[Rfam]
RNA sequence: AGGUAACGCCUACUGUACCUUUAUCAUUGUGGGCACUCGAGCAUACUGUGGGCUUAUCUUGGGCCUUAGACGAUCAUCGUCGAUGGUAUGUUGUGAGGAGGGGUUGAAUGCCCC
Numbered sequence: 001a002g003g004u005a006a007c008g009c010c011u012a013c014u015g016u017a018c019c020u021u022u023a024u025c026a027u028u029g030u031g032g033g034c035a036c037u038c039g040a041g042c043a044u045a046c047u048g049u050g051g052g053c054u055u056a057u058c059u060u061g062g063g064c065c066u067u068a069g070a071c072g073a074u075c076a077u078c079g080u081c082g083a084u085g086g087u088a089u090g091u092u093g094u095g096a097g098g099a100g101g102g103g104u105u106g107a108a109u110g111c112c113c114c
Stems, first nucleotide, its partner, number of pairs: 001020004008034006036097004040092008050066006069081004100114005